[Rfam]
RNA sequence: GAAUGAAGGCAGCAUGGUUAUGUGCACGGAAAUUGAUUUCUUUAGGUCCGCAUGUCCGUGCUCUUUGAUAUUUUGUAUUUGAUUUUAGGGCCUGGUAACGACCUACAUUU
Numbered sequence: 001g002a003a004u005g006a007a008g009g010c011a012g013c014a015u016g017g018u019u020a021u022g023u024g025c026a027c028g029g030a031a032a033u034u035g036a037u038u039u040c041u042u043u044a045g046g047u048c049c050g051c052a053u054g055u056c057c058g059u060g061c062u063c064u065u066u067g068a069u070a071u072u073u074u075g076u077a078u079u080u081g082a083u084u085u086u087a088g089g090g091c092c093u094g095g096u097a098a099c100g101a102c103c104u105a106c107a108u109u110u
Stems, first nucleotide, its partner, number of pairs: 012025004044093005054083003
Small nucleolar RNA snoR100: a 110-nucleotide RNA from Trifolium pratense. The match comes from Rfam's covariance-model search (88 bits). The organism belongs to Trifolium, within Eukaryota. Rfam links the family to the GO terms nucleolus and RNA processing. The family's RNA type in Rfam is H/ACA-box small nucleolar RNA. The literature on the family includes a 2002 paper in Curr Biol by Marker et al., "Experimental RNomics: identification of 140 candidates for small non-messenger RNAs in the plant Arabidopsis thaliana".